[Rfam]
Nucleotides: 081
Base pairs, nucleotide, nucleotide: 001080002079003078004077039052040051041050042049043048
Number, partner (000 for none) and nucleotide at each position: 001080a002079g003078c004077u005000g006000u007000u008000g009000a010000u011000g012000a013000c014000u015000u016000u017000a018000c019000u020000u021000u022000u023000c024000u025000g026000a027000c028000a029000c030000c031000u032000c033000g034000u035000a036000u037000g038000a039052g040051c041050u042049g043048c044000a045000g046000a047000c048043g049042c050041a051040g052039c053000a054000u055000g056000u057000g058000a059000u060000u061000a062000g063000a064000a065000a066000u067000a068000u069000c070000u071000g072000u073000c074000u075000g076000a077004g078003g079002c080001u081000c

Shown here is an 81-nucleotide sequence from Clupea harengus, a member of the family "Small nucleolar RNA SNORD60". The family has 22 seed sequences and 825 matches in Rfam 15.1. The base pairs follow the family's consensus structure, which was predicted with PFOLD. The family is grouped with related families in Rfam's "SNORD60 clan". Rfam links the family to the GO terms nucleolus and RNA processing. Rfam classes the family as a C/D-box small nucleolar RNA.